[Rfam]
RNA: Small nucleolar RNA SNORA65
Nucleotides: 127
Stems, first nucleotide, its partner, number of pairs: 005044005018031002020028001021026001062120004067114001069112001071109002076105005084097003
Number, partner (000 for none) and nucleotide at each position: 001000c002000c003000c004000g005044c006043c007042a008041c009040u010000c011000u012000g013000c014000c015000u016000g017000u018031c019030u020028g021026u022000c023000a024000g025000u026021g027000a028020c029000u030019g031018g032000u033000a034000u035000a036000g037000u038000c039000c040009a041008g042007u043006g044005g045000u046000g047000g048000c049000u050000g051000a052000g053000a054000g055000u056000g057000a058000c059000c060000c061000c062120c063119c064118a065117g066000c067114u068000c069112u070000a071109g072108g073000a074000a075000g076105c077104a078103g079102g080101g081000c082000u083000g084097c085096c086095c087000u088000g089000a090000c091000c092000c093000a094000u095086g096085g097084g098000c099000a100000a101080c102079u103078c104077u105076g106000u107000g108072c109071c110000g111000a112069a113000a114067g115000a116000c117065c118064u119063g120062g121000a122000a123000c124000a125000a126000a127000u